[Rfam]
Description: The family of this 60-nucleotide RNA from Nocardioides zhouii is "Actino-pnp RNA". By type it is a cis-regulatory element. The source organism's lineage runs through Bacteria, Actinomycetota, Actinomycetes, Nocardioidaceae and Nocardioides. The match comes from Rfam's covariance-model search (63 bits).
RNA sequence: CUCGGUCCUCGGUAGUGGCCUUCAGAUCAACGGAUCUGCGGGCCUCGAUCGAAGACCGGC
Numbered sequence: 001c002u003c004g005g006u007c008c009u010c011g012g013u014a015g016u017g018g019c020c021u022u023c024a025g026a027u028c029a030a031c032g033g034a035u036c037u038g039c040g041g042g043c044c045u046c047g048a049u050c051g052a053a054g055a056c057c058g059g060c
Stems, first nucleotide, its partner, number of pairs: 002059006009052005017044005023038006